The record is a 166-nucleotide RNA sequence from Jeotgalibacillus campisalis, which matches "glmS glucosamine-6-phosphate activated ribozyme aptamer" in Rfam.
On this family, see Winkler et al., Nature 2004: "Control of gene expression by a natural metabolite-responsive ribozyme".
The organism belongs to Jeotgalibacillus, within Bacteria.
A search with the family's covariance model found it, with a score of 115 bits.
Gene Ontology terms of the family: regulation of gene expression and catalytic activity.
By type it is a riboswitch.
The base pairs follow the family's consensus structure, which is taken from published work.
[Rfam]
RNA sequence: CACUUCAAAAAAGCGCCAGGACUGCCCGAAUUAACUUCGGCAGUUGACGAGGAGGAGGAGCAUCGAGUUUUCGGCGGAUGCCUCCCGGCUGAUCACUGCACAGUCGUAUACCUGAACUUGAAAUCAUGAAGGCGACUUCGUGGACAAAAGAGCGGGAAUGCAGCAA
Numbered sequence: 001c002a003c004u005u006c007a008a009a010a011a012a013g014c015g016c017c018a019g020g021a022c023u024g025c026c027c028g029a030a031u032u033a034a035c036u037u038c039g040g041c042a043g044u045u046g047a048c049g050a051g052g053a054g055g056a057g058g059a060g061c062a063u064c065g066a067g068u069u070u071u072c073g074g075c076g077g078a079u080g081c082c083u084c085c086c087g088g089c090u091g092a093u094c095a096c097u098g099c100a101c102a103g104u105c106g107u108a109u110a111c112c113u114g115a116a117c118u119u120g121a122a123a124u125c126a127u128g129a130a131g132g133c134g135a136c137u138u139c140g141u142g143g144a145c146a147a148a149a150g151a152g153c154g155g156g157a158a159u160g161c162a163g164c165a166a
Stems, first nucleotide, its partner, number of pairs: 020045007029036001054085005063074004086106006111156004117150001125142007
Dot-bracket structure: ...................(((((((..(......)..)))))))........(((((....((((....))))......)))))((((((.........))))))....((((..(.......(((((((....))))))).......)..))))..........